[Rfam]
RNA sequence: CGACUCCCGCCCGGCAAAGGCUAACCACCAGCCGGAAGCGAGCCUUGCAUGCGAGUGCGGUAACGCACUACUUGAAGCGUAGGCAGCGGAUACCAAAGCCGCGUGAUUGAGUUCCGAAAUCGCCAAUGCUGGCGUCUUCAGUUUCAAGUGGCCUGGGGGACAGCACCGUCGAGCCGGUAGGGUGAGGCAAAGGCGGGCGGGCCGGGAUCUGAGAGCG
Numbered sequence: 001c002g003a004c005u006c007c008c009g010c011c012c013g014g015c016a017a018a019g020g021c022u023a024a025c026c027a028c029c030a031g032c033c034g035g036a037a038g039c040g041a042g043c044c045u046u047g048c049a050u051g052c053g054a055g056u057g058c059g060g061u062a063a064c065g066c067a068c069u070a071c072u073u074g075a076a077g078c079g080u081a082g083g084c085a086g087c088g089g090a091u092a093c094c095a096a097a098g099c100c101g102c103g104u105g106a107u108u109g110a111g112u113u114c115c116g117a118a119a120u121c122g123c124c125a126a127u128g129c130u131g132g133c134g135u136c137u138u139c140a141g142u143u144u145c146a147a148g149u150g151g152c153c154u155g156g157g158g159g160a161c162a163g164c165a166c167c168g169u170c171g172a173g174c175c176g177g178u179a180g181g182g183u184g185a186g187g188c189a190a191a192g193g194c195g196g197g198c199g200g201g202c203c204g205g206g207a208u209c210u211g212a213g214a215g216c217g
Stems, first nucleotide, its partner, number of pairs: 011035004019029002022185001024183002038087002042084004046079002048074002051071001054069006108211001109209001111208006128202003132198002134161003139155003166196005173188003
This 217-nucleotide RNA sequence from Paraburkholderia sp. LEh10 belongs to the Rfam family "Group II catalytic intron D1-D4-6". The literature on the family includes a 2001 paper in EMBO J by Chu et al., "Control of branch-site choice by a group II intron". Rfam links the family to the GO term Group II intron splicing. Rfam 15.1 lists 1,617 matches to the family in 661 species. Group II introns are found in rRNA, tRNA and mRNA of organelles in fungi, plants and protists, and also in mRNA in bacteria.